[Rfam]
Background
Shown here is a 79-nucleotide RNA from Callorhinchus milii, a member of the family "mir-27 microRNA precursor family". Taxonomically the source falls in Callorhinchus (Eukaryota, Opisthokonta, Gnathostomata, Holocephali). The family's consensus secondary structure was predicted with RNAalifold. Its family is annotated with miRNA-mediated post-transcriptional gene silencing and RISC complex in the Gene Ontology. The match comes from Rfam's covariance-model search (51 bits).

RNA sequence: UGCUGGUAUAGAGCUUAGCCAUUUGGAGAGCAGUAUCAUUGGAGAGCUUUGUUCACAGUGGCUAAGUUUCAUACCCAGA
Numbered sequence: 001u002g003c004u005g006g007u008a009u010a011g012a013g014c015u016u017a018g019c020c021a022u023u024u025g026g027a028g029a030g031c032a033g034u035a036u037c038a039u040u041g042g043a044g045a046g047c048u049u050u051g052u053u054c055a056c057a058g059u060g061g062c063u064a065a066g067u068u069u070c071a072u073a074c075c076c077a078g079a
Stems, first nucleotide, its partner, number of pairs: 011069010026056001028054005